[Rfam]
RNA sequence: AAUGACACGAUGAGGAGCAAGCUUUGUGUAUUCAUUGAGAUCGAAUGAUCUAUGACAUUUUCGAAAGUUAAAAAAAGUCCUUUUCAUUCUGAGUGUCAA
Numbered sequence: 001a002a003u004g005a006c007a008c009g010a011u012g013a014g015g016a017g018c019a020a021g022c023u024u025u026g027u028g029u030a031u032u033c034a035u036u037g038a039g040a041u042c043g044a045a046u047g048a049u050c051u052a053u054g055a056c057a058u059u060u061u062c063g064a065a066a067g068u069u070a071a072a073a074a075a076a077g078u079c080c081u082u083u084u085c086a087u088u089c090u091g092a093g094u095g096u097c098a099a
Base pairs, nucleotide, nucleotide: 004097005096006095007094008093010087011086012085013084014083015082016081017080
Dot-bracket structure: ...(((((.((((((((..............................................................)))))))).....)))))..
This 99-nucleotide sequence from Citrus unshiu belongs to the Rfam family "Small nucleolar RNA Z162". The organism belongs to Citrus, within Eukaryota. A search with the family's covariance model found it, with a score of 46 bits. It is annotated as a C/D-box small nucleolar RNA.